A member of the RNA family "BsrG" from Virgibacillus sp. MSP4-1, 285 nucleotides long. bsrE, bsrG and bsrH pair through intermolecular interactions with antisense sRNAs. They form type I toxin/antitoxin system that includes an mRNA encoding for a short, toxic peptide (bsrE, bsrG and bsrH) and an antitoxin that is comprised of an antisense RNA. bsrG encodes a 39-amino-acid toxin, and the 180 nucleotide antisense sRNA called SR4 acts as the antitoxin (they overlap by 123 nucleotides). SR4 interaction with the 3'UTR of bsrG RNA promotes bsrG degradation and inhibits its translation.

[Rfam]
RNA sequence: UCAACUACAUAAAGCAGACGGGCGGUUGGCACUCCCUCUGAGAAAGGGGGUGUUUAAAUGGUGACAUAUGAAAUCAUGAACAUGCUAUUUCAAUUUGGUAUUUUUUUAGCAACAGGAUUAACAUCUGUAGUAGCUGUCAUCGCACUUGUCACCAAUAAAAAAAAGAAGUAAUCGCCCUCUGCUCUUGGCCUGAGUAGGGUGAUUACUUCUUUAAUCAAACAAUACGGCCAGCCGCCCAAAUUGCGGCAUGUAGUUGAAGCGACCGAGUAUAUAAAAUGUACUCGG
Numbered sequence: 001u002c003a004a005c006u007a008c009a010u011a012a013a014g015c016a017g018a019c020g021g022g023c024g025g026u027u028g029g030c031a032c033u034c035c036c037u038c039u040g041a042g043a044a045a046g047g048g049g050g051u052g053u054u055u056a057a058a059u060g061g062u063g064a065c066a067u068a069u070g071a072a073a074u075c076a077u078g079a080a081c082a083u084g085c086u087a088u089u090u091c092a093a094u095u096u097g098g099u100a101u102u103u104u105u106u107u108a109g110c111a112a113c114a115g116g117a118u119u120a121a122c123a124u125c126u127g128u129a130g131u132a133g134c135u136g137u138c139a140u141c142g143c144a145c146u147u148g149u150c151a152c153c154a155a156u157a158a159a160a161a162a163a164a165g166a167a168g169u170a171a172u173c174g175c176c177c178u179c180u181g182c183u184c185u186u187g188g189c190c191u192g193a194g195u196a197g198g199g200u201g202a203u204u205a206c207u208u209c210u211u212u213a214a215u216c217a218a219a220c221a222a223u224a225c226g227g228c229c230a231g232c233c234g235c236c237c238a239a240a241u242u243g244c245g246g247c248a249u250g251u252a253g254u255u256g257a258a259g260c261g262a263c264c265g266a267g268u269a270u271a272u273a274a275a276a277u278g279u280a281c282u283c284g285g
Stems, first nucleotide, its partner, number of pairs: 001257005007251003013183005020178003024173004031053002035050005060153007073088002097145001232246004263285010
It is annotated as a small RNA. A reference for the family is Saito et al. (2008), "Novel small RNA-encoding genes in the intergenic regions of Bacillus subtilis", Gene. Its family is annotated with toxin activity and autolysis in the Gene Ontology. The organism belongs to Virgibacillus, within Bacteria.